[Rfam]
RNA sequence: ACGCGAGAAAGGAGGUGGUCCGAAAAGUGAUUUCUUUGCGGACACGCGAGGUGUUCGCCCGUUAGGGCGACCACGUUCGGAUCGCCCUGGCGAAUCCACGGUGGACACCCGGACCCUCGGGUGGCCGGCCUUGUCCGACCGGCCCCGGCGCGAGCCGGACAAGACGCCCGAGGGUCCGCCCGU
Dot-bracket structure: .............(((((....................................)))))(((((((((((.(.......).))))))))))).................(((((((((((((..(((((........................))))).......))))))))))))).....

This 183-nucleotide sequence from Thermobifida cellulosilytica belongs to the Rfam family "Actinobacteria sRNA Ms_IGR-5". It is annotated as a small RNA. The pairing is the family consensus, mapped onto this sequence.